[Rfam]
RNA sequence: UUUGCCUUGUCAGGAGAGCGCCCGCUGCGUGCGGGCCGCCGAAGGCGCAGAGCGCGCGGAUCAUCGAAUGCGCUCGAACGCUCAGGCAAAAGGACUGGCAAGCGGCG
Numbered sequence: 001u002u003u004g005c006c007u008u009g010u011c012a013g014g015a016g017a018g019c020g021c022c023c024g025c026u027g028c029g030u031g032c033g034g035g036c037c038g039c040c041g042a043a044g045g046c047g048c049a050g051a052g053c054g055c056g057c058g059g060a061u062c063a064u065c066g067a068a069u070g071c072g073c074u075c076g077a078a079c080g081c082u083c084a085g086g087c088a089a090a091a092g093g094a095c096u097g098g099c100a101a102g103c104g105g106c107g
Stems, first nucleotide, its partner, number of pairs: 006102008020036004038087003041083002045081003051074006
This 107-nucleotide sequence from Ideonella livida belongs to the Rfam family "Glycine riboswitch aptamer". This family represents the bacterial glycine riboswitch. A search with the family's covariance model found it, with a score of 58 bits.